[Rfam]
RNA sequence: CUAAUCGUAAAUAAAAUUUCUCGUAUAUCCUCGGUAAUAUGGUCCGAGUGUCUCUACCUAGUUCCCACGAUAAGAACUGGACUACGAGUUGAAGUAUUUGGUUG
Numbered sequence: 001c002u003a004a005u006c007g008u009a010a011a012u013a014a015a016a017u018u019u020c021u022c023g024u025a026u027a028u029c030c031u032c033g034g035u036a037a038u039a040u041g042g043u044c045c046g047a048g049u050g051u052c053u054c055u056a057c058c059u060a061g062u063u064c065c066c067a068c069g070a071u072a073a074g075a076a077c078u079g080g081a082c083u084a085c086g087a088g089u090u091g092a093a094g095u096a097u098u099u100g101g102u103u104g
Stems, first nucleotide, its partner, number of pairs: 020088006030048005058080007
Notes
Rfam assigns this 104-nucleotide RNA from Guptibacillus hwajinpoensis to the family "Purine riboswitch aptamer". Pairs were carried over by alignment from the consensus structure, which is taken from published work. A reference for the family is Mandal et al. (2003), "Riboswitches Control Fundamental Biochemical Pathways in Bacillus subtilis and Other Bacteria", Cell. A search with the family's covariance model found it, with a score of 73 bits. Its family is annotated with purine nucleobase biosynthetic process in the Gene Ontology. The organism belongs to Guptibacillus, within Bacteria.